The record is a 102-nucleotide RNA from Bacillus coahuilensis, which matches "Purine riboswitch aptamer" in Rfam. It scores 81 bits against the family's covariance model. The base pairs follow the family's consensus structure, which is taken from published work.
[Rfam]
RNA sequence: UCAUAAUCUAUACGCAUGACUCGUAUAAUAGUGGGAAUAUGGCCCAAAAGUUUCUACCAAACUACCGUAAAUGGUUUGACUACGAGGAUGUGAGGGCUUUUU
Numbered sequence: 001u002c003a004u005a006a007u008c009u010a011u012a013c014g015c016a017u018g019a020c021u022c023g024u025a026u027a028a029u030a031g032u033g034g035g036a037a038u039a040u041g042g043c044c045c046a047a048a049a050g051u052u053u054c055u056a057c058c059a060a061a062c063u064a065c066c067g068u069a070a071a072u073g074g075u076u077u078g079a080c081u082a083c084g085a086g087g088a089u090g091u092g093a094g095g096g097c098u099u100u101u102u
Base pairs, nucleotide, nucleotide: 020086021085022084023083024082025081029049032046033045034044035043058078059077060076061075062074063073064072